[Rfam]
RNA: sR084 sRNA
Organism: Yersinia pestis
RNA sequence: CAAAAAGUCAGGACUAGACAUAUUAACCAUCGAUUCAGUCCUUAUCAUAGCCUCACAGAACACCUCCUGUGAGGGU
Numbered sequence: 001c002a003a004a005a006a007g008u009c010a011g012g013a014c015u016a017g018a019c020a021u022a023u024u025a026a027c028c029a030u031c032g033a034u035u036c037a038g039u040c041c042u043u044a045u046c047a048u049a050g051c052c053u054c055a056c057a058g059a060a061c062a063c064c065u066c067c068u069g070u071g072a073g074g075g076u
Base pairs, nucleotide, nucleotide: 010042011041012040013039014038015037017036018035051074052073053072054071055070056069057068058067